A member of the RNA family "Small nucleolar RNA SNORD60" from Monodelphis domestica, 83 nucleotides long. The family's RNA type in Rfam is C/D-box small nucleolar RNA. The family's consensus secondary structure was predicted with PFOLD.

[Rfam]
RNA sequence: AGCCAGUGAUGAGACAUUUCCAUUUCUGACACCUCGUAUGAAAUCUGCAUGUGCAGUUUGAUUAUAUAGCAACCCUGAGGCUC
Numbered sequence: 001a002g003c004c005a006g007u008g009a010u011g012a013g014a015c016a017u018u019u020c021c022a023u024u025u026c027u028g029a030c031a032c033c034u035c036g037u038a039u040g041a042a043a044u045c046u047g048c049a050u051g052u053g054c055a056g057u058u059u060g061a062u063u064a065u066a067u068a069g070c071a072a073c074c075c076u077g078a079g080g081c082u083c
Stems, first nucleotide, its partner, number of pairs: 001082004045056004
About this RNA: On this family, see Kiss-Laszlo et al., Cell 1996: "Site-specific ribose methylation of preribosomal RNA: a novel function for small nucleolar RNAs".